RNA sequence: AGUCGUACUGAUUCGAUCGGGAUAGUCAUCAAAUAAUUAGGAAAAACCGGGAUGGUUUCCAUGUUAAUGGCGGGCCACAUAAAUCGCAUCUCCGCGACUAAGCCGCAAGGCCGGUGGAUUACAACGACUGGGAACUCCUACAAUUUUUGUAACUCGGACUUUUCAUCACAUCGUCAGUGCGACUCUUAUA
Number, nucleotide and partner (000 for none) at each position: 001a000002g000003u000004c000005g000006u000007a000008c000009u000010g000011a000012u000013u000014c000015g000016a000017u000018c000019g000020g000021g000022a000023u000024a000025g000026u000027c000028a000029u000030c000031a000032a000033a000034u000035a000036a000037u000038u000039a000040g000041g000042a000043a000044a000045a000046a000047c000048c000049g000050g000051g000052a000053u000054g136055g135056u134057u000058u133059c132060c131061a000062u000063g128064u127065u126066a000067a000068u123069g122070g000071c000072g000073g000074g000075c117076c116077a115078c114079a000080u000081a000082a000083a000084u000085c000086g000087c000088a000089u000090c000091u000092c000093c000094g000095c000096g000097a000098c000099u000100a000101a000102g111103c110104c109105g000106c000107a000108a000109g104110g103111c102112c000113g000114g078115u077116g076117g075118a000119u000120u000121a000122c069123a068124a000125c000126g065127a064128c063129u000130g000131g060132g059133a058134a056135c055136u054137c000138c000139u000140a000141c000142a000143a000144u000145u000146u000147u000148u000149g000150u000151a000152a000153c000154u000155c000156g000157g000158a000159c000160u000161u000162u000163u000164c000165a000166u000167c000168a000169c000170a000171u000172c000173g000174u000175c000176a000177g000178u000179g000180c000181g000182a000183c000184u000185c000186u000187u000188a000189u000190a000
This 190-nucleotide RNA sequence from Prevotella lacticifex belongs to the Rfam family "Bacteroidales-1 6S-Bacteroidales RNA suggested". On this family, see Ryan et al., Nat Commun 2020: "A high-resolution transcriptome map identifies small RNA regulation of metabolism in the gut microbe Bacteroides thetaiotaomicron". The match comes from Rfam's covariance-model search (106 bits). Bacteroidales-1 was first reported in a comparative genomics-based approach of genome and metagenome sequences from Weinberg et al. 2010 In a high-resolution transcriptome map study of Bacteroides thetaiotaomicron, Ryan et al. 2020 report this sRNA as 6S RNA homologue of Bacteroides, in the study they obtain evidence of small product RNAs (pRNAs) related to 6S function.